This 118-nucleotide RNA sequence from Gordonia humi belongs to the Rfam family "Actinobacteria sRNA Ms_IGR-7".
A search with the family's covariance model found it, with a score of 65 bits.

RNA sequence: ACGAGAUGCCUCUCUGGCUGGGCGAAUAGGACCUUAGACAAGCUCUAUUCUUCCCGGUCAGAGGGGCAUCUCUGCGUCAGGACACCCGCUGAACACCCCGACUCAUCGGUGGAUCGAG
Number, nucleotide and partner (000 for none) at each position: 001a000002c000003g072004a071005g070006a069007u068008g067009c066010c065011u064012c063013u062014c061015u060016g059017g000018c057019u056020g055021g054022g053023c000024g050025a049026a048027u047028a000029g045030g000031a000032c042033c000034u000035u000036a000037g000038a000039c000040a000041a000042g032043c000044u000045c029046u000047a027048u026049u025050c024051u000052u000053c022054c021055c020056g019057g018058u000059c016060a015061g014062a013063g012064g011065g010066g009067c008068a007069u006070c005071u004072c003073u000074g000075c000076g000077u000078c000079a000080g000081g000082a000083c000084a000085c000086c000087c000088g000089c000090u000091g000092a000093a000094c000095a000096c000097c000098c000099c116100g115101a114102c000103u112104c111105a110106u000107c000108g000109g000110u105111g104112g103113a000114u101115c100116g099117a000118g000
The source organism's lineage runs through Bacteria, Actinomycetota, Mycobacteriales, Gordoniaceae and Gordonia. The pairing is the family consensus, mapped onto this sequence. Rfam 15.1 lists 463 matches to the family in 194 species.